[Rfam]
Nucleotides: 152
Base pairs, nucleotide, nucleotide: 001152002151003150004149005148006147010062011061012060016056017055018054020052021051022050023049024048025047026046027045028044029042030041031040032039033038067110068109069108070107071106072105073104076101077100078099079098083094084093085092086091112143113142114141115140116139117138118137123133124132125131126130
Number, partner (000 for none) and nucleotide at each position: 001152u002151g003150a004149u005148g006147c007000a008000a009000g010062g011061g012060a013000g014000a015000a016056a017055a018054g019000a020052u021051c022050a023049u024048g025047g026046a027045u028044u029042u030041c031040a032039u033038g034000c035000u036000u037000g038033c039032a040031u041030g042029g043000a044028a045027a046026u047025c048024c049023a050022u051021g052020a053000g054018u055017u056016u057000g058000g059000a060012u061011c062010c063000c064000g065000c066000a067110a068109a069108a070107a071106u072105a073104u074000g075000a076101g077100a078099a079098a080000g081000u082000a083094g084093c085092c086091c087000g088000a089000c090000a091086g092085g093084g094083c095000g096000g097000a098079u099078u100077u101076c102000g103000a104073a105072u106071a107070u108069u109068u110067u111000c112143a113142g114141a115140u116139u117138g118137u119000g120000a121000g122000a123133g124132c125131a126130u127000g128000a129000a130126a131125u132124g133123c134000a135000a136000a137118g138117c139116a140115a141114u142113c143112u144000g145000g146000a147006g148005c149004a150003u151002c152001a
Clostridiales-1 RNA: a 152-nucleotide RNA sequence from Firmicutes bacterium CAG:56. The source organism's lineage runs through Bacteria, Bacillati and Bacillota. The family's consensus secondary structure is taken from published work.